Notes: This 67-nucleotide sequence from Nonomuraea zeae belongs to the Rfam family "Transposase-2 RNA". The organism belongs to Nonomuraea, within Bacteria. The family's RNA type in Rfam is small RNA.
Nucleotides: 067
Stems, first nucleotide, its partner, number of pairs: 011040005018029004044063008
Number, partner (000 for none) and nucleotide at each position: 001000g002000a003000a004000g005000c006000g007000u008000g009000a010000a011040c012039c013038c014037g015036g016000c017000a018029c019028g020027g021026c022000a023000u024000c025000c026021g027020c028019c029018g030000a031000c032000c033000a034000g035000a036015c037014c038013g039012g040011g041000a042000c043000c044063g045062c046061c047060g048059c049058c050057g051056g052000g053000c054000a055000a056051c057050c058049g059048g060047c061046g062045g063044c064000u065000g066000c067000c